This 74-nucleotide sequence from Petromyzon marinus belongs to the Rfam family "mir-551 microRNA precursor family". It is one of the family's seed sequences. On this family, see Murchison et al., Genome Res 2008: "Conservation of small RNA pathways in platypus". The base pairs follow the family's consensus structure, which was predicted with RNAalifold.

Nucleotides: 074
Stems, first nucleotide, its partner, number of pairs: 002073001004071002008066006015059002020054004028048003
Number, partner (000 for none) and nucleotide at each position: 001000u002073g003000c004071c005070u006000c007000c008066g009065a010064a011063a012062u013061c014000a015059a016058g017000u018000g019000u020054g021053g022052g023051u024000a025000u026000g027000a028048c029047c030046u031000u032000g033000u034000u035000g036000u037000u038000u039000u040000a041000a042000u043000c044000c045000u046030a047029g048028g049000c050000g051023a052022c053021c054020c055000a056000u057000a058016c059015u060000u061013g062012g063011u064010u065009u066008c067000a068000a069000a070005g071004g072000a073002c074000u